This 71-nucleotide RNA sequence from Frisingicoccus caecimuris belongs to the Rfam family "tRNA". Transfer RNA (tRNA) molecules are approximately 80 nucleotides in length. Their secondary structure includes four short double-helical elements and three loops (D, anti-codon, and T loops). By type it is a transfer RNA.
RNA sequence: GCAGGGUUAGUAUAUCGGUAAUACAGCGGCUUCCCAAGCCGCGGAGGCGGGUUCGACUCCCGUACCCUGCU
Numbered sequence: 001g002c003a004g005g006g007u008u009a010g011u012a013u014a015u016c017g018g019u020a021a022u023a024c025a026g027c028g029g030c031u032u033c034c035c036a037a038g039c040c041g042c043g044g045a046g047g048c049g050g051g052u053u054c055g056a057c058u059c060c061c062g063u064a065c066c067c068u069g070c071u
Stems, first nucleotide, its partner, number of pairs: 001070007010024004026042005047063005